Background:
Shown here is a 397-nucleotide RNA sequence from Cysteiniphilum litorale, a member of the family "Bacterial RNase P class A". Taxonomically the source falls in Cysteiniphilum (Bacteria, Pseudomonadota, Gammaproteobacteria, Thiotrichales).
[Rfam]
RNA sequence: UAAGUUGAUCAGACAGUCGCGUCUUACCACUUUUGGCAAAUCAGAGUUUUUAUAAAGAAAAAGCCUAGAGUUGCCAAAAGUGGUAGGACGAGGAAAGUCCGGGCUUCAAAGAGCAAGAUGCCAGGUAACGCCUGGGAGGCGUAAGCUUACGGAAAGUGCAACAGAGAAUAGACCGCCUGUAUUGUUAUAUAGGUAAGGGUGAAACGGUGUGGUAAGAGCGCACCGCGCUUUUGGUAACAAAAGUGGCAUGGUAAACCCCAUCUGAAGCAAGGCCAAAUAGGGUUGUAAUAGUGUGGCUCGCGCUGCAACCGGGUAGGCUGCUUGAGCAUUAUGGUGACAUAAUGCCUAGAUAAAUGACUGUCCACGACAGAACCCGGCUUAUCGAUUGACUUAGUAU
Numbered sequence: 001u002a003a004g005u006u007g008a009u010c011a012g013a014c015a016g017u018c019g020c021g022u023c024u025u026a027c028c029a030c031u032u033u034u035g036g037c038a039a040a041u042c043a044g045a046g047u048u049u050u051u052a053u054a055a056a057g058a059a060a061a062a063g064c065c066u067a068g069a070g071u072u073g074c075c076a077a078a079a080g081u082g083g084u085a086g087g088a089c090g091a092g093g094a095a096a097g098u099c100c101g102g103g104c105u106u107c108a109a110a111g112a113g114c115a116a117g118a119u120g121c122c123a124g125g126u127a128a129c130g131c132c133u134g135g136g137a138g139g140c141g142u143a144a145g146c147u148u149a150c151g152g153a154a155a156g157u158g159c160a161a162c163a164g165a166g167a168a169u170a171g172a173c174c175g176c177c178u179g180u181a182u183u184g185u186u187a188u189a190u191a192g193g194u195a196a197g198g199g200u201g202a203a204a205c206g207g208u209g210u211g212g213u214a215a216g217a218g219c220g221c222a223c224c225g226c227g228c229u230u231u232u233g234g235u236a237a238c239a240a241a242a243g244u245g246g247c248a249u250g251g252u253a254a255a256c257c258c259c260a261u262c263u264g265a266a267g268c269a270a271g272g273c274c275a276a277a278u279a280g281g282g283u284u285g286u287a288a289u290a291g292u293g294u295g296g297c298u299c300g301c302g303c304u305g306c307a308a309c310c311g312g313g314u315a316g317g318c319u320g321c322u323u324g325a326g327c328a329u330u331a332u333g334g335u336g337a338c339a340u341a342a343u344g345c346c347u348a349g350a351u352a353a354a355u356g357a358c359u360g361u362c363c364a365c366g367a368c369a370g371a372a373c374c375c376g377g378c379u380u381a382u383c384g385a386u387u388g389a390c391u392u393a394g395u396a397u
Stems, first nucleotide, its partner, number of pairs: 001393010011382001012362007020090020095380003099377005104267004111299004116263005121135005136150001137148004151258002156256002158252002173198002175194008206224006225247001226245008271319004281310006290304005326345008
Dot-bracket structure: ((((((((((((((((((.((((((((((((((((((((...............................))))))))))))))))))))....[[[.[[[[[((((...[[[[.((((((((((.....)))))(((((....)))).)((...((((.............((((((((((....))))))))..)).......((((((.......))))))(((((((((....)))))))).)...))..)))))))))))))...((((......((((((...(((((.]]]]))))))))))).....))))......((((((((....))))))))..........)))))))..........]]]]]]]].).))))))))))....